[Rfam]
RNA sequence: AUGGUCGGCGAGUGGCUCACGAUGUCAAGACAUGACAUUGAGAAGGGGUUCAACUCCCCCGCCCAUCGUGAGCGAUAUCACGCAAA
Numbered sequence: 001a002u003g004g005u006c007g008g009c010g011a012g013u014g015g016c017u018c019a020c021g022a023u024g025u026c027a028a029g030a031c032a033u034g035a036c037a038u039u040g041a042g043a044a045g046g047g048g049u050u051c052a053a054c055u056c057c058c059c060c061g062c063c064c065a066u067c068g069u070g071a072g073c074g075a076u077a078u079c080a081c082g083c084a085a086a
Stems, first nucleotide, its partner, number of pairs: 004076001005019001007017003012051001020040007045059004060074003067082005

A member of the RNA family "Tymovirus/Pomovirus/Furovirus tRNA-like 3' UTR element" from Protea cynaroides, 86 nucleotides long.
The family's consensus secondary structure is taken from published work.
By type it is a cis-regulatory element.
A reference for the family is Matsuda and Dreher (2004), "The tRNA-like structure of Turnip yellow mosaic virus RNA is a 3'-translational enhancer", Virology.
The source organism's lineage runs through Eukaryota, Streptophyta, Tracheophyta, Spermatophyta and Protea.